[Rfam]
Nucleotides: 391
Stems, first nucleotide, its partner, number of pairs: 004391003007387001009329006016038006043385003047382005052242005057075004062071002081237005086101006102124001103122008125232002128172003136163002139161002144157005178230002180226003195214008246262003266296006297315006332370004337365001339364003
Number, partner (000 for none) and nucleotide at each position: 001000a002000g003000a004391u005390g006389c007387g008000g009329a010328u011327a012326g013325u014324c015000g016038c017037u018036g019035c020034c021033u022000g023000a024000c025000a026000u027000a028000u029000g030000a031000g032000c033021a034020g035019g036018u037017a038016g039000a040000g041000g042000a043385a044384a045383g046000u047382c048381c049380a050379g051378g052242c053241u054240c055239g056238c057075c058074c059073g060072g061000a062071g063070c064000u065000g066000a067000g068000a069000u070063g071062c072060c073059c074058g075057g076000a077000g078000u079000g080000u081237u082236c083235g084234u085233g086101c087100c088099u089098a090097u091096c092000g093000c094000a095000a096091g097090g098089u099088a100087g101086g102124g103122c104121a105120g106119u107118c108117g109116g110115u111000u112000a113000c114000g115110g116109c117108c118107g119106g120105c121104u122103g123000a124102c125232g126231g127000c128172g129171g130170g131000g132000a133000a134000a135000g136163u137162a138000u139161c140160c141000u142000a143000a144157g145156g146155c147154a148153u149000u150000u151000a152000u153148g154147u155146g156145c157144u158000a159000u160140g161139g162137u163136g164000c165000g166000a167000a168000u169000a170130c171129c172128c173000u174000g175000a176000a177000a178230g179229u180226g181225c182224c183000a184000c185000a186000g187000u188000g189000a190000c191000g192000g193000a194000g195214u196213u197212c198211u199210u200209c201208c202207g203000g204000a205000a206000a207202c208201g209200g210199a211198a212197g213196a214195a215000g216000u217000g218000g219000a220000a221000c222000g223000a224182g225181g226180u227000a228000a229179a230178c231126c232125c233085c234084a235083c236082g237081a238056g239055u240054g241053a242052g243000c244000a245000a246262c247261c248260c249000a250000a251000a252000u253000u254000a255000u256000g257000g258000u259000a260248g261247g262246g263000g264000c265000a266296c267295c268294g269293c270292c271291c272000a273000g274000c275000g276000g277000g278000a279000a280000a281000u282000g283000a284000a285000c286000c287000a288000a289000a290000a291271g292270g293269g294268c295267g296266g297315a298314u299313c300312g301311g302310u303000c304000g305000c306000a307000c308000a309000g310302a311301c312300c313299g314298a315297u316000a317000g318000u319000u320000a321000a322000a323000u324014g325013a326012c327011u328010a329009u330000g331000a332370c333369u334368u335367c336000a337365g338000g339364u340363a341362c342000c343000a344000g345000g346000c347000u348000g349000g350000c351000u352000g353000c354000c355000g356000a357000u358000a359000u360000g361000a362341g363340u364339a365337c366000a367335g368334a369333a370332g371000u372000a373000c374000a375000g376000a377000a378051c379050c380049u381048g382047g383045c384044u385043u386000a387007u388000a389006g390005c391004a
The record is a 391-nucleotide sequence from Ammoniphilus sp. CFH 90114, which matches "Bacterial RNase P class B" in Rfam. Clan: RNaseP clan. A reference for the family is Frank and Pace (1998), "Ribonuclease P: unity and diversity in a tRNA processing ribozyme", Annu Rev Biochem. Rfam's curators write: Ribonuclease P (RNase P) is a ubiquitous endoribonuclease, found in archaea, bacteria and eukarya as well as chloroplasts and mitochondria. Gene Ontology terms of the family: ribonuclease P activity, dimeric ribonuclease P complex and tRNA processing.